[Rfam]
RNA sequence: GGUCGGCACAACGUUGCCGGAUCCGGCCAAGGCCCGUCCCCCGCCUCCAACCGGAUUAAAUGCGGUAGCCUCAUCCCCCUCUCCGGGCUGCCGCAUUCUGAUACGGCCACCGUGGUUUCCCCCUCCACCACGGUGGCCGCUU
Numbered sequence: 001g002g003u004c005g006g007c008a009c010a011a012c013g014u015u016g017c018c019g020g021a022u023c024c025g026g027c028c029a030a031g032g033c034c035c036g037u038c039c040c041c042c043g044c045c046u047c048c049a050a051c052c053g054g055a056u057u058a059a060a061u062g063c064g065g066u067a068g069c070c071u072c073a074u075c076c077c078c079c080u081c082u083c084c085g086g087g088c089u090g091c092c093g094c095a096u097u098c099u100g101a102u103a104c105g106g107c108c109a110c111c112g113u114g115g116u117u118u119c120c121c122c123c124u125c126c127a128c129c130a131c132g133g134u135g136g137c138c139g140c141u142u
Stems, first nucleotide, its partner, number of pairs: 021056006031045003060096011105138001107136010
Dot-bracket structure: ....................((((((....(((.........))).....))))))...(((((((((((...............)))))))))))........(.((((((((((..........)))))))))).)....